Shown here is an 85-nucleotide sequence from Thermoplasmatales archaeon B_DKE, a member of the family "tRNA". It is annotated as a transfer RNA. The organism belongs to Thermoplasmatales, within Archaea.
[Rfam]
RNA sequence: GCGAGGGUAGCUAAGCUUGGCUAAAAGUGCAGGACUUAAGAUCCUGUCCGGAAGCGGUUCGUGGGUUCGAAUCCCUCCCCUCGCA
Numbered sequence: 001g002c003g004a005g006g007g008u009a010g011c012u013a014a015g016c017u018u019g020g021c022u023a024a025a026a027g028u029g030c031a032g033g034a035c036u037u038a039a040g041a042u043c044c045u046g047u048c049c050g051g052a053a054g055c056g057g058u059u060c061g062u063g064g065g066u067u068c069g070a071a072u073c074c075c076u077c078c079c080c081u082c083g084c085a
Stems, first nucleotide, its partner, number of pairs: 001084007010028003030046005061077001063075003

The match comes from Rfam's covariance-model search (54 bits).